[Rfam]
RNA sequence: AUGUUAUCAAGAAAGGCGGAGGGAUUAGACCCAUUGAAGCCUUAGCAACCCUUGUUAUUCUACUUAUCUAAGUAUAGAAUAUCAAGAAGGUGCUACAUUCUACAGCGAUUUUUUUAAUCGAAGAUAGAUAACGA
Numbered sequence: 001a002u003g004u005u006a007u008c009a010a011g012a013a014a015g016g017c018g019g020a021g022g023g024a025u026u027a028g029a030c031c032c033a034u035u036g037a038a039g040c041c042u043u044a045g046c047a048a049c050c051c052u053u054g055u056u057a058u059u060c061u062a063c064u065u066a067u068c069u070a071a072g073u074a075u076a077g078a079a080u081a082u083c084a085a086g087a088a089g090g091u092g093c094u095a096c097a098u099u100c101u102a103c104a105g106c107g108a109u110u111u112u113u114u115u116a117a118u119c120g121a122a123g124a125u126a127g128a129u130a131a132c133g134a
Stems, first nucleotide, its partner, number of pairs: 002133007013043005021032003026102004044094004049090002051086004098126001103123001106120005